The family of this 79-nucleotide sequence from Caenorhabditis brenneri is "SmY spliceosomal RNA". On this family, see Maroney et al., RNA 1996: "Direct analysis of nematode cis- and trans-spliceosomes: a functional role for U5 snRNA in spliced leader addition trans-splicing and the identification of novel Sm snRNPs". The base pairs follow the family's consensus structure, which is taken from published work.
RNA sequence: GGUUAUAAAGAUUUUUAUACCGGGCCUUACAGAAGACCCCAAGUACAAUUUUUGCAGCCCUUUCCUUCGGGUCAGGGUA
Numbered sequence: 001g002g003u004u005a006u007a008a009a010g011a012u013u014u015u016u017a018u019a020c021c022g023g024g025c026c027u028u029a030c031a032g033a034a035g036a037c038c039c040c041a042a043g044u045a046c047a048a049u050u051u052u053u054g055c056a057g058c059c060c061u062u063u064c065c066u067u068c069g070g071g072u073c074a075g076g077g078u079a
Base pairs, nucleotide, nucleotide: 022039023038024037026035027034028033057078058077059076060075061074064071065070